This 181-nucleotide sequence from Ictidomys tridecemlineatus belongs to the Rfam family "Small Cajal body specific RNA 16". The source organism's lineage runs through Eukaryota, Opisthokonta, Chordata, Mammalia and Ictidomys. scaRNAs are a specific class of small nuclear RNAs which localise to the Cajal bodies and guide the modification of RNA polymerase II transcribed spliceosomal RNAs U1, U2, U4, U5 and U12. ACA47 belongs to the H/ACA box class of guide RNAs as it has the predicted hairpin-hinge-hairpin-tail structure, the conserved H/ACA-box motifs and is found associated with GAR1. ACA47 is predicted to guide the pseudouridylation of residue U5 of the U1 spliceosomal snRNA. For this family Rfam cites "Cajal body-specific small nuclear RNAs: a novel class of 2'-O-methylation and pseudouridylation guide RNAs" (Darzacq et al., EMBO J, 2002).
[Rfam]
RNA sequence: GUGGUCCGGGGAACGGCGCCUGUGUUGUCGCACCUGCCCAGUGGCCUGUGCAGCCCGUACCAGGCAGCCCCACCCUGACCUAGAGUAAGUCCCGGGGAGCCCUCCCGGGUCGGAAUCUGCAGUAACAGGUGUGAGCACUCUGGGCAGCCGCUUGUGGUCAUGUAUGAUACUGCAAACAGGC
Dot-bracket structure: ..((((.(((....(((.((((.((.((.(.((..............)).).))....))))))..)))...))).))))...........((((((.....)))))).......(.(((((((.((....(((.(((...(.(....).)..))).)))....)).))))))).).....
Numbered sequence: 001g002u003g004g005u006c007c008g009g010g011g012a013a014c015g016g017c018g019c020c021u022g023u024g025u026u027g028u029c030g031c032a033c034c035u036g037c038c039c040a041g042u043g044g045c046c047u048g049u050g051c052a053g054c055c056c057g058u059a060c061c062a063g064g065c066a067g068c069c070c071c072a073c074c075c076u077g078a079c080c081u082a083g084a085g086u087a088a089g090u091c092c093c094g095g096g097g098a099g100c101c102c103u104c105c106c107g108g109g110u111c112g113g114a115a116u117c118u119g120c121a122g123u124a125a126c127a128g129g130u131g132u133g134a135g136c137a138c139u140c141u142g143g144g145c146a147g148c149c150g151c152u153u154g155u156g157g158u159c160a161u162g163u164a165u166g167a168u169a170c171u172g173c174a175a176a177c178a179g180g181c
Stems, first nucleotide, its partner, number of pairs: 003080004008075003015069003019064004024060002027054002030051001032049002092108006116176001118174007126166002132160003136156003142151001144149001